A member of the RNA family "Bacterial RNase P class B" from Streptococcus pluranimalium, 370 nucleotides long.
Taxonomically the source falls in Streptococcus (Bacteria, Bacillati, Bacilli, Streptococcaceae).
Clan: RNaseP clan.
Rfam links the family to the GO terms ribonuclease P activity, tRNA processing and dimeric ribonuclease P complex.
Rfam describes the family as follows. Ribonuclease P (RNase P) is a ubiquitous endoribonuclease, found in archaea, bacteria and eukarya as well as chloroplasts and mitochondria. Its best characterised activity is the generation of mature 5'-ends of tRNAs by cleaving the 5'-leader elements of precursor-tRNAs. Cellular RNase Ps are ribonucleoproteins. RNA from bacterial RNase Ps retains its catalytic activity in the absence of the protein subunit, i.e. it is a ribozyme. Isolated eukaryotic and archaeal RNase P RNA has not been shown to retain its catalytic function, but is still essential for the catalytic activity of the holoenzyme. Although the archaeal and eukaryotic holoenzyme s have a much greater protein content than the bacterial ones, the RNA cores from all the three lineages are homologous -- helices corresponding to P1, P2, P3, P4, and P10/11 are common to all cellular RNase P RNAs. Yet, there is considerable sequence variation, particularly among the eukaryotic RNAs.
RNA sequence: AUUUUUGGAUAAUCGCGUAGUAUUUUGAUACUAUGAGGAAAGUCCAUGCUAGCACUGGCUGUGAUGCCGGUAGUGUUUGUGCUAGGCGAAAAAAUAAGCCUAGGGACGUAUGAUGAUACGUUACGGCAGGUAAAAUGGCUAAGUCCUUGAUAUGCCAUAGUAACCUUGAAAGUGCCACAGUGACGAAGUUUCUAGGGAAACCUAGAAAGUGGAACGCGGUAAACCCCUCAAGCUAGCAACCCAAACUUUGGUCGGGGCAUGAGAUAGCUGGAAGACGAACAGAACUAUCUUGACUGCAACAGCAGUAGACAGAUGAUUAUCGAGGAAGUUGGUUCCUAGUCAACUUCUGAACAAAACAUGGCUUAUAGAA
Numbered sequence: 001a002u003u004u005u006u007g008g009a010u011a012a013u014c015g016c017g018u019a020g021u022a023u024u025u026u027g028a029u030a031c032u033a034u035g036a037g038g039a040a041a042g043u044c045c046a047u048g049c050u051a052g053c054a055c056u057g058g059c060u061g062u063g064a065u066g067c068c069g070g071u072a073g074u075g076u077u078u079g080u081g082c083u084a085g086g087c088g089a090a091a092a093a094a095u096a097a098g099c100c101u102a103g104g105g106a107c108g109u110a111u112g113a114u115g116a117u118a119c120g121u122u123a124c125g126g127c128a129g130g131u132a133a134a135a136u137g138g139c140u141a142a143g144u145c146c147u148u149g150a151u152a153u154g155c156c157a158u159a160g161u162a163a164c165c166u167u168g169a170a171a172g173u174g175c176c177a178c179a180g181u182g183a184c185g186a187a188g189u190u191u192c193u194a195g196g197g198a199a200a201c202c203u204a205g206a207a208a209g210u211g212g213a214a215c216g217c218g219g220u221a222a223a224c225c226c227c228u229c230a231a232g233c234u235a236g237c238a239a240c241c242c243a244a245a246c247u248u249u250g251g252u253c254g255g256g257g258c259a260u261g262a263g264a265u266a267g268c269u270g271g272a273a274g275a276c277g278a279a280c281a282g283a284a285c286u287a288u289c290u291u292g293a294c295u296g297c298a299a300c301a302g303c304a305g306u307a308g309a310c311a312g313a314u315g316a317u318u319a320u321c322g323a324g325g326a327a328g329u330u331g332g333u334u335c336c337u338a339g340u341c342a343a344c345u346u347c348u349g350a351a352c353a354a355a356a357c358a359u360g361g362c363u364u365a366u367a368g369a370a
Stems, first nucleotide, its partner, number of pairs: 004370003007366001008321007016035006040364003044361005049236005054071006077231003081227001082103006104124001105122006125226002128166004136157004143151003172224002174220003189208008240256003260292007293306005324348010